Source information: Rfam assigns this 86-nucleotide RNA from Gossypium schwendimanii to the family "MIR7486 microRNA precursor family". The family's consensus secondary structure was predicted with RNAalifold.

RNA sequence: UACGUCAGCGAGAGUUGCUGAUGUGGAAGCAAAUCCGUCCUUGAGGGAGCGAUUUGCUUCCAUGUCAGCAACUCACGCUGACAUGG
Numbered sequence: 001u002a003c004g005u006c007a008g009c010g011a012g013a014g015u016u017g018c019u020g021a022u023g024u025g026g027a028a029g030c031a032a033a034u035c036c037g038u039c040c041u042u043g044a045g046g047g048a049g050c051g052a053u054u055u056g057c058u059u060c061c062a063u064g065u066c067a068g069c070a071a072c073u074c075a076c077g078c079u080g081a082c083a084u085g086g
Stems, first nucleotide, its partner, number of pairs: 001085002004082007012074010023063013036049001039046002

Rfam links the family to the GO terms miRNA-mediated post-transcriptional gene silencing and RISC complex. The match comes from Rfam's covariance-model search (71 bits). Lineage of the source: Eukaryota > Magnoliopsida > Pentapetalae > Malvaceae > Gossypium.